Rfam assigns this 33-nucleotide RNA sequence to the family "DUF805b RNA". The family's consensus secondary structure is taken from published work. The family is grouped with related families in Rfam's "DUF805 clan".

RNA sequence: AACAGGUAUGCCGAAAACUGAACAGAGUAGGCA
Numbered sequence: 001a002a003c004a005g006g007u008a009u010g011c012c013g014a015a016a017a018c019u020g021a022a023c024a025g026a027g028u029a030g031g032c033a
Base pairs, nucleotide, nucleotide: 003020004019005018010032011031012030